[Rfam]
The family of this 77-nucleotide RNA from Ochotona princeps is "Small nucleolar RNA SNORD47". For this family Rfam cites "Purified box C/D snoRNPs are able to reproduce site-specific 2'-O-methylation of target RNA in vitro" (Galardi et al., Mol Cell Biol, 2002). The family has 20 seed sequences and 755 matches in Rfam 15.1. Rfam's curators put it in the seed alignment.
RNA sequence: AGCCAGUGAUGCAAUGAUUCUGCCAAAUGAAAAAGAAUGAUAUCACCUGCAAACCGUUCCAUCUAAACACUGAGGCU
Numbered sequence: 001a002g003c004c005a006g007u008g009a010u011g012c013a014a015u016g017a018u019u020c021u022g023c024c025a026a027a028u029g030a031a032a033a034a035g036a037a038u039g040a041u042a043u044c045a046c047c048u049g050c051a052a053a054c055c056g057u058u059c060c061a062u063c064u065a066a067a068c069a070c071u072g073a074g075g076c077u
Base pairs, nucleotide, nucleotide: 001077002076003075004074